[Rfam]
RNA sequence: GGAUUCCCUUCGAGAAAGAACUAGCUAUUCACUCGUAGCGAGUCUUGGAGGAUAGCAGGUAACUGUUAUCUUUAAGCGUAGACAGUUAGCUAAUGGGCCGUAAGGCAUAUGGUUGAAGGGAUUGAGCUCCGAAAUCCGUGUCGAUUAAGAGGGUUGAUGCUGUAACCGUAGCAGAAAACAAUAUUUCAAUAUCGAUUUGGCGAGAUAUUUGAAACCUCUUCGGAGUCGGUGACCA
Numbered sequence: 001g002g003a004u005u006c007c008c009u010u011c012g013a014g015a016a017a018g019a020a021c022u023a024g025c026u027a028u029u030c031a032c033u034c035g036u037a038g039c040g041a042g043u044c045u046u047g048g049a050g051g052a053u054a055g056c057a058g059g060u061a062a063c064u065g066u067u068a069u070c071u072u073u074a075a076g077c078g079u080a081g082a083c084a085g086u087u088a089g090c091u092a093a094u095g096g097g098c099c100g101u102a103a104g105g106c107a108u109a110u111g112g113u114u115g116a117a118g119g120g121a122u123u124g125a126g127c128u129c130c131g132a133a134a135u136c137c138g139u140g141u142c143g144a145u146u147a148a149g150a151g152g153g154u155u156g157a158u159g160c161u162g163u164a165a166c167c168g169u170a171g172c173a174g175a176a177a178a179c180a181a182u183a184u185u186u187c188a189a190u191a192u193c194g195a196u197u198u199g200g201c202g203a204g205a206u207a208u209u210u211g212a213a214a215c216c217u218c219u220u221c222g223g224a225g226u227c228g229g230u231g232a233c234c235a
Stems, first nucleotide, its partner, number of pairs: 011035004018030003022203001024201002038086002042083004046078002048073011123229001124227001126226006147220006153179003158173004184214005189208005